The record is a 73-nucleotide RNA sequence, which matches "mir-242 microRNA precursor family" in Rfam. The family has 3 seed sequences and 10 matches in Rfam 15.1. The literature on the family includes a 2009 paper in Genome Res by de Wit et al., "Repertoire and evolution of miRNA genes in four divergent nematode species".

RNA sequence: GCAAGAGUUUUGCGUAGGCCUUUGCUUCGAAAUAAUGAGAUUCUCGUAGCAAUGUCCUCCGCAAUACUUUUGU
Number, nucleotide and partner (000 for none) at each position: 001g000002c000003a071004a070005g069006a068007g067008u066009u000010u064011u063012g062013c061014g060015u000016a058017g057018g056019c000020c000021u000022u052023u051024g050025c049026u048027u000028c046029g045030a044031a000032a000033u000034a000035a000036u000037g000038a000039g000040a000041u000042u000043c000044u030045c029046g028047u000048a026049g025050c024051a023052a022053u000054g000055u000056c018057c017058u016059c000060c014061g013062c012063a011064a010065u000066a008067c007068u006069u005070u004071u003072g000073u000